A member of the RNA family "PrrF RNA" from Pseudomonas sp. SDI, 150 nucleotides long.
Pairs were carried over by alignment from the consensus structure, which is taken from published work.
It scores 151 bits against the family's covariance model.
Rfam classes the family as a small RNA.
Rfam's curators write: PrrF RNA is a small RNA involved in iron homeostasis and is found exclusively in Pseudomonas species.
Its family is annotated with sRNA-mediated gene silencing in the Gene Ontology.
The literature on the family includes a 2004 paper in Proc Natl Acad Sci U S A by Wilderman et al., "Identification of tandem duplicate regulatory small RNAs in Pseudomonas aeruginosa involved in iron homeostasis".
RNA sequence: UUGACUUGCCAAUGAGAAUGGUUAUGAUUAUCACAACUGGUCGCGAGACUGGUUGGAUACUCUGAAAGCCCCUGGUUCGGACUUUCAGGUUAUCUCCUCAUCAGGCUAAUCACGGUUAUUGACCCGGCAGUUUUGCCGGGUCUUUUUUUG
Numbered sequence: 001u002u003g004a005c006u007u008g009c010c011a012a013u014g015a016g017a018a019u020g021g022u023u024a025u026g027a028u029u030a031u032c033a034c035a036a037c038u039g040g041u042c043g044c045g046a047g048a049c050u051g052g053u054u055g056g057a058u059a060c061u062c063u064g065a066a067a068g069c070c071c072c073u074g075g076u077u078c079g080g081a082c083u084u085u086c087a088g089g090u091u092a093u094c095u096c097c098u099c100a101u102c103a104g105g106c107u108a109a110u111c112a113c114g115g116u117u118a119u120u121g122a123c124c125c126g127g128c129a130g131u132u133u134u135g136c137c138g139g140g141u142c143u144u145u146u147u148u149u150g
Stems, first nucleotide, its partner, number of pairs: 034055009062088007070079001096105003121142008